[Rfam]
RNA sequence: UUUUAGAGAUGAUGAUUCAUAUCAGAGGCUGUUUCUGAGGAUGAGCCAAGAGCUCUCCCAGUGCCGCAAAAAAAAAAAUAAUAAUAAUAAUAAAAAAAAACUGAUUUGCCGUUCUGAUCAAAAG
Numbered sequence: 001u002u003u004u005a006g007a008g009a010u011g012a013u014g015a016u017u018c019a020u021a022u023c024a025g026a027g028g029c030u031g032u033u034u035c036u037g038a039g040g041a042u043g044a045g046c047c048a049a050g051a052g053c054u055c056u057c058c059c060a061g062u063g064c065c066g067c068a069a070a071a072a073a074a075a076a077a078a079u080a081a082u083a084a085u086a087a088u089a090a091u092a093a094a095a096a097a098a099a100a101c102u103g104a105u106u107u108g109c110c111g112u113u114c115u116g117a118u119c120a121a122a123a124g
Stems, first nucleotide, its partner, number of pairs: 003122002006119002043055004066109005
RNA: Small nucleolar RNA Z119
Organism: Miscanthus lutarioriparius